[Rfam]
RNA sequence: GUCGUCCGGCACAUGGACGGGCUGACCAUACUGCGGCCGGCCCGGCUACCCUGGCGGCGUGCGUACUCCUCGGGCGGAGCCCGGGGGCGCAAAGCCGACAGCCGUCGCAUUCGAGGGAGCCCAUCCAUG
Numbered sequence: 001g002u003c004g005u006c007c008g009g010c011a012c013a014u015g016g017a018c019g020g021g022c023u024g025a026c027c028a029u030a031c032u033g034c035g036g037c038c039g040g041c042c043c044g045g046c047u048a049c050c051c052u053g054g055c056g057g058c059g060u061g062c063g064u065a066c067u068c069c070u071c072g073g074g075c076g077g078a079g080c081c082c083g084g085g086g087g088c089g090c091a092a093a094g095c096c097g098a099c100a101g102c103c104g105u106c107g108c109a110u111u112c113g114a115g116g117g118a119g120c121c122c123a124u125c126c127a128u129g
Stems, first nucleotide, its partner, number of pairs: 060091004066086004094108002097106003
The record is a 129-nucleotide sequence from Streptomyces sp. Amel2xC10, which matches "Streptomyces-metH RNA" in Rfam. The base pairs follow the family's consensus structure, which is taken from published work.